[Rfam]
RNA sequence: GCUGCCGCGAAGCCGAGUCGCCAGGGAAUGCCUGGCGAGCGGGGGACCCAAACCCUCCCCACUGGGGCUAACCCACACCCGAGCGUGUGGGGGCGCUGCUCUUUCUGCGCCAGCCCGUCAGCUAACCCCGUAGGCCGACGAAAGAGUUCUU
Numbered sequence: 001g002c003u004g005c006c007g008c009g010a011a012g013c014c015g016a017g018u019c020g021c022c023a024g025g026g027a028a029u030g031c032c033u034g035g036c037g038a039g040c041g042g043g044g045g046a047c048c049c050a051a052a053c054c055c056u057c058c059c060c061a062c063u064g065g066g067g068c069u070a071a072c073c074c075a076c077a078c079c080c081g082a083g084c085g086u087g088u089g090g091g092g093g094c095g096c097u098g099c100u101c102u103u104u105c106u107g108c109g110c111c112a113g114c115c116c117g118u119c120a121g122c123u124a125a126c127c128c129c130g131u132a133g134g135c136c137g138a139c140g141a142a143a144g145a146g147u148u149c150u151u
Stems, first nucleotide, its partner, number of pairs: 012135003018038008039131006049064002065116003073090004093110004